[Rfam]
RNA: Small nucleolar RNA SNORA69
Organism: Menura novaehollandiae
RNA sequence: AAAGCAGGCUGCAAUUGCAGUGCUUCCUGCUGUGGGAGCACUGCCAUUUUCCUGCUGAGAGCAACUCUGUUAUCACUGUCUGCGGUUUCACCUGUACCUUGGUGAAAGCGUUUGUGCUUAACAUGGACACGU
Numbered sequence: 001a002a003a004g005c006a007g008g009c010u011g012c013a014a015u016u017g018c019a020g021u022g023c024u025u026c027c028u029g030c031u032g033u034g035g036g037a038g039c040a041c042u043g044c045c046a047u048u049u050u051c052c053u054g055c056u057g058a059g060a061g062c063a064a065c066u067c068u069g070u071u072a073u074c075a076c077u078g079u080c081u082g083c084g085g086u087u088u089c090a091c092c093u094g095u096a097c098c099u100u101g102g103u104g105a106a107a108g109c110g111u112u113u114g115u116g117c118u119u120a121a122c123a124u125g126g127a128c129a130c131g132u
Stems, first nucleotide, its partner, number of pairs: 003056006018043009067126004073120001075118001077116001083110002086107007094099001